[Rfam]
RNA sequence: GAAUCGACCGGGUCGACGGCGCGGGUCACCACGAGGUAGUCGCGCAGGACGAUCGCGUGACGGUUGUC
Numbered sequence: 001g002a003a004u005c006g007a008c009c010g011g012g013u014c015g016a017c018g019g020c021g022c023g024g025g026u027c028a029c030c031a032c033g034a035g036g037u038a039g040u041c042g043c044g045c046a047g048g049a050c051g052a053u054c055g056c057g058u059g060a061c062g063g064u065u066g067u068c
Base pairs, nucleotide, nucleotide: 004063005062006061008059011030012029013028015027016026017025035056038053040052041051042050
The family of this 68-nucleotide sequence from Gordonia soli is "ASdes TB sRNA".
It scores 70 bits against the family's covariance model.
Rfam 15.1 lists 1,192 matches to the family in 825 species.
NCBI's taxonomy places the organism under Bacteria, Actinomycetes, Mycobacteriales, Gordonia, Gordonia soli.